[Rfam]
RNA sequence: AUACCUUUCUCGGCCUUUUGGCUAAGAUCAAGUGUAGUAUCUGUUCUUCUCAGUUUAAUAUCUGAUAUGUGAGGCAAUGCCUCACACGGUAUUAAAUUAAUUUUUGAUUGGGGGAGGUUUGCCAUAAUAAAUUGCUAUUGAGUCCUUCAAGAGUCGCCCAUUCGUUGCACUACUCCUUGGGCUUGGCUCGCCCUUC
Number, nucleotide and partner (000 for none) at each position: 001a000002u000003a000004c000005c000006u000007u000008u027009c026010u025011c000012g023013g022014c021015c020016u000017u000018u000019u000020g015021g014022c013023u012024a000025a010026g009027a008028u000029c000030a000031a000032g000033u000034g000035u000036a000037g000038u000039a000040u000041c000042u000043g000044u000045u000046c000047u000048u067049c000050u065051c064052a063053g062054u000055u000056u000057a000058a000059u000060a000061u000062c053063u052064g051065a050066u000067a048068u000069g085070u084071g083072a082073g081074g080075c079076a000077a000078u000079g075080c074081c073082u072083c071084a070085c069086a000087c000088g000089g000090u000091a000092u000093u000094a000095a000096a000097u000098u000099a000100a000101u000102u000103u000104u000105u000106g000107a000108u000109u000110g000111g000112g000113g148114g147115a146116g145117g144118u000119u142120u141121g000122c000123c000124a000125u000126a000127a138128u137129a136130a000131a000132u000133u000134g000135c000136u129137a128138u127139u000140g000141a120142g119143u000144c117145c116146u115147u114148c113149a000150a000151g189152a188153g187154u186155c185156g184157c000158c180159c179160a178161u000162u000163c000164g000165u000166u000167g000168c000169a000170c000171u000172a000173c000174u000175c000176c000177u000178u160179g159180g158181g000182c000183u000184u156185g155186g154187c153188u152189c151190g000191c000192c000193c000194u000195u000196c000